[Rfam]
RNA sequence: GGCCAUAUAGCUCAAUUGGUAGAGCAACUGGCAUGUAUCCAGAAGGUUCCAGGUUCAAUCCCUGGUCUGGUUA
Numbered sequence: 001g002g003c004c005a006u007a008u009a010g011c012u013c014a015a016u017u018g019g020u021a022g023a024g025c026a027a028c029u030g031g032c033a034u035g036u037a038u039c040c041a042g043a044a045g046g047u048u049c050c051a052g053g054u055u056c057a058a059u060c061c062c063u064g065g066u067c068u069g070g071u072u073a
Stems, first nucleotide, its partner, number of pairs: 001072005007066001010025004028042004049065005
tRNA: a 73-nucleotide sequence from Serpula lacrymans. By type it is a transfer RNA. The organism belongs to Serpula lacrymans var. lacrymans, within Eukaryota. The literature on the family includes a 1993 paper in Trends Biochem Sci by Hou, "The tertiary structure of tRNA and the development of the genetic code". The family's consensus secondary structure is taken from published work. A search with the family's covariance model found it, with a score of 51 bits. Rfam's curators write: Transfer RNA (tRNA) molecules are approximately 80 nucleotides in length. Their secondary structure includes four short double-helical elements and three loops (D, anti-codon, and T loops).